[Rfam]
RNA sequence: AAUCCUCCUGGUAACUGGCGAUCUAUGUGGAGCACCACAGGGAAGCCAGGAGGUAAGAUGCUAGAGCCGCUCGCCUGGGCUGGGACA
Numbered sequence: 001a002a003u004c005c006u007c008c009u010g011g012u013a014a015c016u017g018g019c020g021a022u023c024u025a026u027g028u029g030g031a032g033c034a035c036c037a038c039a040g041g042g043a044a045g046c047c048a049g050g051a052g053g054u055a056a057g058a059u060g061c062u063a064g065a066g067c068c069g070c071u072c073g074c075c076u077g078g079g080c081u082g083g084g085a086c087a
Base pairs, nucleotide, nucleotide: 004053005052006051007050008049009048010047011046012045015042016041017075018074019073020072021071027038028037029036030035065081066080067079068078

The family of this 87-nucleotide sequence from Ktedonosporobacter rubrisoli is "ZMP/ZTP riboswitch aptamer (pfl RNA motif)". The base pairs follow the family's consensus structure, which is taken from published work. A search with the family's covariance model found it, with a score of 65 bits. Rfam links the family to the GO terms regulation of purine nucleotide biosynthetic process and one-carbon metabolic process.